[Rfam]
RNA: Selenocysteine insertion sequence 1
Organism: Collichthys lucidus
RNA sequence: CUUUUUAUAUGAUGAUUACAGUGCAAACUUCUGGUAACUGUAAUCUGAAGACUUAAAAG
Numbered sequence: 001c002u003u004u005u006u007a008u009a010u011g012a013u014g015a016u017u018a019c020a021g022u023g024c025a026a027a028c029u030u031c032u033g034g035u036a037a038c039u040g041u042a043a044u045c046u047g048a049a050g051a052c053u054u055a056a057a058a059g
Stems, first nucleotide, its partner, number of pairs: 001059005014045009027035003